[Rfam]
RNA sequence: GGCUUCUUAACCAAGCAUUAACUUUACGAGUGUUUACUAUAACCAUCCAGUGAUCUGGAUUCUUACCGAGUGGCUGGAGCCACUUCGUUUGACGCCUCCCUGUUAACUCCUGAGAGCCGCCUUCCAGCGGCUCUUUUUUU
Number, nucleotide and partner (000 for none) at each position: 001g000002g000003c000004u013005u000006c000007u000008u000009a000010a000011c000012c000013a004014a038015g037016c000017a000018u000019u036020a035021a034022c000023u032024u000025u000026a000027c000028g000029a000030g000031u000032g023033u000034u021035u020036a019037c015038u014039a000040u000041a000042a000043c000044c000045a000046u058047c057048c000049a000050g000051u000052g000053a000054u000055c000056u000057g047058g046059a000060u000061u000062c000063u000064u000065a000066c000067c000068g085069a084070g083071u082072g081073g080074c000075u000076g000077g000078a000079g000080c073081c072082a071083c070084u069085u068086c000087g000088u000089u000090u000091g104092a103093c102094g101095c000096c000097u000098c000099c000100c000101u094102g093103u092104u091105a000106a000107c000108u000109c000110c000111u000112g135113a134114g133115a132116g131117c130118c129119g128120c127121c000122u000123u000124c000125c000126a000127g120128c119129g118130g117131c116132u115133c114134u113135u112136u000137u000138u000139u000140u000
RNA: Alphaproteobacterial sRNA BjrC1505